[Rfam]
RNA sequence: CUUGUCCUUGUCUUUGGGGAGCAUAGUAUUCAAUGAUCGUUUAGUGAGGGUACUGAUGCUGAAACCAAUGCAAAUUAAAUUACUCGCAUCCGUGUACGAUUGUACGCGUGUUGCAAUUUUUGAACGG
Numbered sequence: 001c002u003u004g005u006c007c008u009u010g011u012c013u014u015u016g017g018g019g020a021g022c023a024u025a026g027u028a029u030u031c032a033a034u035g036a037u038c039g040u041u042u043a044g045u046g047a048g049g050g051u052a053c054u055g056a057u058g059c060u061g062a063a064a065c066c067a068a069u070g071c072a073a074a075u076u077a078a079a080u081u082a083c084u085c086g087c088a089u090c091c092g093u094g095u096a097c098g099a100u101u102g103u104a105c106g107c108g109u110g111u112u113g114c115a116a117u118u119u120u121u122g123a124a125c126g127g
Base pairs, nucleotide, nucleotide: 005019006018007017008016021059022058023057024056025054026053027052028051029050030049031048038044086114087113088112090110091108092107093106094105095104096103097102
Background:
The record is a 127-nucleotide RNA sequence from Fopius arisanus, which matches "U4atac minor spliceosomal RNA" in Rfam. Clan: U4 clan. The family's consensus secondary structure is taken from published work. NCBI's taxonomy places the organism under Eukaryota, Panarthropoda, Apocrita, Braconidae, Fopius. Rfam classes the family as a spliceosomal small nuclear RNA. It scores 83 bits against the family's covariance model. On this family, see Davila Lopez et al., Nucleic Acids Res 2008: "Computational screen for spliceosomal RNA genes aids in defining the phylogenetic distribution of major and minor spliceosomal components".